[Rfam]
RNA sequence: CUCUGUUUCGAAAGUUGCAGGGCGGAAGGAG
Numbered sequence: 001c002u003c004u005g006u007u008u009c010g011a012a013a014g015u016u017g018c019a020g021g022g023c024g025g026a027a028g029g030a031g
Stems, first nucleotide, its partner, number of pairs: 001022006